UnaL2 LINE 3' element: a 54-nucleotide RNA from Oncorhynchus kisutch.
NCBI's taxonomy places the organism under Eukaryota, Bilateria, Teleostomi, Salmonidae, Oncorhynchus.

[Rfam]
RNA sequence: UGCAUUUACUACUGUAAGUCCCUCUGGAUAAGAGCAUCUGCUAAAUCACUGAAA
Dot-bracket structure: ............((((.....((((.....))))....))).)...........
Numbered sequence: 001u002g003c004a005u006u007u008a009c010u011a012c013u014g015u016a017a018g019u020c021c022c023u024c025u026g027g028a029u030a031a032g033a034g035c036a037u038c039u040g041c042u043a044a045a046u047c048a049c050u051g052a053a054a
Stems, first nucleotide, its partner, number of pairs: 013043001014041003022034004
Rfam's curators write: The eel long interspersed element (LINE) UnaL2 and its partner short interspersed element (SINE) share a conserved 3' tail containing a stem-loop that is critical for their retrotransposition. Presumably, the first step of retrotransposition is the recognition of their 3' tails by UnaL2-encoded reverse transcriptase. The solution structure of a 17-nucleotide RNA derived from the 3' tail of UnaL2 was determined by NMR. The family's consensus secondary structure is taken from published work. Gene Ontology term of the family: transposition, RNA-mediated. It scores 58 bits against the family's covariance model.